[Rfam]
RNA sequence: GGAGCCGCCCGGGCGUACGCGUCGAUCUGCAGGGCAGGGGUCGCCGAGGAAAGUCCGGGCACCACAGGGCAGGGUGCCGGCCAACGGCCGGUCGGGGUGACCCGCAGGACAGCGCCACAGAGAACAGACCGCCGAACGGCGCCGCGAGGCGCGCGUGGCAAGGGUGAAACGGUGCGGUAAGAGCGCACCGCGCGCCGGGUGACCGGCGCGGCAUGGCAAACCCCACCCGGUGCAAGAGCGAAUAGGGAGGCAUCGCCCGCGAGGGCGUGACCCGCGCGCGAGCGCGGGUCGAAGACCGGCCCGGUCGGAGCCUCCGGGUACAGCUCGCUGGAGGCGCGCGGCAACGCGCGUCCGAGAGGAAUGUACGCCGCCGCCGGCCGCGAGGCCGGCGGGACAGGACCCGGCUUACAGGGCGGCUCCGGCA
Number, nucleotide and partner (000 for none) at each position: 001g420002g419003a418004g417005c416006c415007g414008c413009c412010c411011g409012g369013g368014c367015g366016u365017a364018c363019g000020c046021g045022u000023c043024g042025a041026u040027c039028u038029g000030c000031a000032g000033g000034g000035c000036a000037g000038g028039g027040g026041u025042c024043g023044c000045c021046g020047a000048g000049g000050a000051a407052a406053g405054u000055c404056c403057g402058g401059g400060c232061a231062c230063c229064a000065c000066a000067g302068g301069g300070c299071a000072g228073g227074g226075u225076g224077c091078c090079g089080g088081c087082c000083a000084a000085c000086g000087g081088c080089c079090g078091g077092u106093c104094g103095g102096g101097g000098u000099g000100a000101c096102c095103c094104g093105c000106a092107g223108g222109a000110c000111a000112g221113c000114g217115c216116c215117a000118c000119a000120g000121a000122g000123a000124a000125c000126a000127g000128a000129c163130c162131g159132c158133c157134g000135a000136a000137c153138g152139g000140c000141g000142c000143c000144g000145c000146g000147a000148g000149g000150c000151g000152c138153g137154c000155g000156u000157g133158g132159c131160a000161a000162g130163g129164g000165u000166g000167a000168a000169a000170c000171g189172g188173u187174g186175c185176g184177g000178u000179a000180a000181g000182a000183g000184c176185g175186c174187a173188c172189c171190g212191c210192g209193c208194g207195c206196c205197g204198g203199g000200u000201g000202a000203c198204c197205g196206g195207c194208g193209c192210g191211g000212c190213a000214u000215g116216g115217c114218a000219a000220a000221c112222c108223c107224c076225a075226c074227c073228c072229g063230g062231u061232g060233c000234a000235a000236g326237a325238g324239c323240g000241a000242a000243u000244a000245g000246g315247g314248a313249g312250g311251c310252a000253u000254c000255g000256c000257c000258c000259g000260c000261g000262a000263g000264g000265g000266c000267g000268u000269g000270a000271c000272c000273c000274g000275c000276g000277c000278g000279c000280g000281a000282g000283c000284g000285c000286g000287g000288g000289u000290c000291g000292a000293a000294g306295a305296c304297c303298g000299g070300c069301c068302c067303g297304g296305u295306c294307g000308g000309a000310g251311c250312c249313u248314c247315c246316g000317g000318g000319u000320a000321c000322a000323g239324c238325u237326c236327g000328c000329u000330g000331g000332a000333g352334g351335c350336g349337c348338g347339c346340g345341g000342c000343a000344a000345c340346g339347c338348g337349c336350g335351u334352c333353c000354g000355a000356g000357a000358g000359g000360a000361a000362u000363g018364u017365a016366c015367g014368c013369c012370g000371c000372c000373g000374c000375c000376g000377g000378c000379c000380g000381c000382g000383a000384g000385g000386c000387c000388g000389g000390c000391g000392g000393g000394a000395c000396a000397g000398g000399a000400c059401c058402c057403g056404g055405c053406u052407u051408a000409c011410a000411g010412g009413g008414c007415g006416g005417c004418u003419c002420c001421g000422g000423c000424a000